Nucleotides: 133
Stems, first nucleotide, its partner, number of pairs: 001057001003055002008050002014045008023037001025035002066130001068129006087116005092110005
Number, partner (000 for none) and nucleotide at each position: 001057u002000g003055c004054u005000a006000c007000a008050u009049u010000c011000a012000g013000a014045a015044g016043u017042g018041a019040u020039c021038a022000u023037g024000u025035g026034c027000u028000g029000c030000c031000u032000g033000u034026g035025c036000c037023c038021u039020g040019g041018u042017c043016a044015u045014u046000g047000a048000u049009a050008g051000c052000a053000c054004a055003g056000g057001g058000a059000g060000a061000g062000a063000a064000u065000u066130g067000c068129u069128g070127a071126a072125a073124g074000g075000c076000a077000u078000u079000u080000u081000c082000c083000u084000c085000a086000u087116g088115u089114u090113u091112g092110a093109a094108g095107g096106g097000u098000c099000c100000a101000g102000c103000u104000c105000u106096c107095c108094c109093u110092u111000c112091c113090a114089a115088a116087u117000c118000c119000u120000g121000g122000a123000g124073c125072u126071u127070u128069c129068a130066c131000a132000c133000a

Notes:
Small nucleolar RNA SNORA71: a 133-nucleotide sequence from Myotis myotis. It is annotated as an H/ACA-box small nucleolar RNA. The base pairs follow the family's consensus structure, which was predicted with PFOLD. The match comes from Rfam's covariance-model search (98 bits). A reference for the family is Ganot et al. (1997), "The family of box ACA small nucleolar RNAs is defined by an evolutionarily conserved secondary structure and ubiquitous sequence elements essential for RNA accumulation", Genes Dev. The members of this family belong to the H/ACA class of snoRNAs which bind a number of proteins (including dyskerin, Gar1p and Nop10p) to form snoRNP complexes. This class of snoRNAs are thought to guide the sites of modification of uridines to pseudouridines by forming direct base pairing interactions with substrate RNAs. This family includes U71 (SNORA71), ACA39 (SNORA39) and ACA60 (SNORA60). Rfam links the family to the GO terms RNA processing and nucleolus. The source organism's lineage runs through Eukaryota, Opisthokonta, Boreoeutheria, Laurasiatheria and Myotis.